[Rfam]
RNA sequence: UUUAUAGCAUAACUCCGAGCUUGUUUAGCCUAAGUUUCCUGUAUUGGAAAUAUGGCGGCAACGCCAAUAACGAAGUUCGUUAUUCAGGGAUACGUCGGAAACGGUUUAUCCUCUCCAUUUUUAGAAAGGUGUGACAUGCAAUCUAUC
Numbered sequence: 001u002u003u004a005u006a007g008c009a010u011a012a013c014u015c016c017g018a019g020c021u022u023g024u025u026u027a028g029c030c031u032a033a034g035u036u037u038c039c040u041g042u043a044u045u046g047g048a049a050a051u052a053u054g055g056c057g058g059c060a061a062c063g064c065c066a067a068u069a070a071c072g073a074a075g076u077u078c079g080u081u082a083u084u085c086a087g088g089g090a091u092a093c094g095u096c097g098g099a100a101a102c103g104g105u106u107u108a109u110c111c112u113c114u115c116c117a118u119u120u121u122u123a124g125a126a127a128g129g130u131g132u133g134a135c136a137u138g139c140a141a142u143c144u145a146u147c
Stems, first nucleotide, its partner, number of pairs: 003141001012132002015129002019064002022061001025058002028056003034051006066084007087112006094105004113124002
RNA: Molybdenum/Tungsten riboswitch aptamer (Moco RNA motif)